[Rfam]
RNA sequence: CUUGAUCAAGGAUGAUAACUUUUAAAGGUGACUGCUGGAUGAAGCUUGCGGAUAUGGGACUGAGAUCAGUG
Numbered sequence: 001c002u003u004g005a006u007c008a009a010g011g012a013u014g015a016u017a018a019c020u021u022u023u024a025a026a027g028g029u030g031a032c033u034g035c036u037g038g039a040u041g042a043a044g045c046u047u048g049c050g051g052a053u054a055u056g057g058g059a060c061u062g063a064g065a066u067c068a069g070u071g
Stems, first nucleotide, its partner, number of pairs: 002069004
Record summary: This 71-nucleotide RNA sequence from Danionella cerebrum belongs to the Rfam family "Small nucleolar RNA SNORD99". Lineage of the source: Eukaryota > Chordata > Teleostomi > Actinopterygii > Danionella. Its Rfam clan is "SNORD58 clan". A reference for the family is Galardi et al. (2002), "Purified box C/D snoRNPs are able to reproduce site-specific 2'-O-methylation of target RNA in vitro", Mol Cell Biol. Rfam 15.1 lists 673 matches to the family in 613 species. It is annotated as a C/D-box small nucleolar RNA. It scores 66 bits against the family's covariance model. Rfam links the family to the GO terms RNA processing and nucleolus.